RNA sequence: GCGGCGGACCCCCGCGGCGUCCAUCCUGUGAACCUCCCCAGGGCCGGAAGGCAGCAAGGAUAAGCAGGCUCUGACGGGUGCGGGGGUCCCCUUCAUG
Number, nucleotide and partner (000 for none) at each position: 001g000002c000003g000004g091005c000006g089007g088008a087009c086010c085011c084012c083013c082014g081015c078016g000017g000018c076019g075020u074021c073022c000023a000024u000025c068026c067027u066028g065029u064030g000031a000032a000033c000034c000035u060036c059037c058038c000039c000040a000041g000042g000043g052044c051045c050046g000047g000048a000049a000050g045051g044052c043053a000054g000055c000056a000057a000058g037059g036060a035061u000062a000063a000064g029065c028066a027067g026068g025069c000070u000071c000072u000073g021074a020075c019076g018077g000078g015079u000080g000081c014082g013083g012084g011085g010086g009087u008088c007089c006090c000091c004092u000093u000094c000095a000096u000097g000

Rfam assigns this 97-nucleotide sequence from Saccharomonospora piscinae to the family "Bacterial small signal recognition particle RNA". Pairs were carried over by alignment from the consensus structure, which is taken from published work. On this family, see Righetti et al., Proc Natl Acad Sci U S A 2016: "Temperature-responsive in vitro RNA structurome of Yersinia pseudotuberculosis". A search with the family's covariance model found it, with a score of 69 bits.